[Rfam]
RNA sequence: CCCGGGGCAAUGCCCCGGGCUAUCCCAUGACGCCCUUUCAGGGCU
Numbered sequence: 001c002c003c004g005g006g007g008c009a010a011u012g013c014c015c016c017g018g019g020c021u022a023u024c025c026c027a028u029g030a031c032g033c034c035c036u037u038u039c040a041g042g043g044c045u
Stems, first nucleotide, its partner, number of pairs: 001019008032044005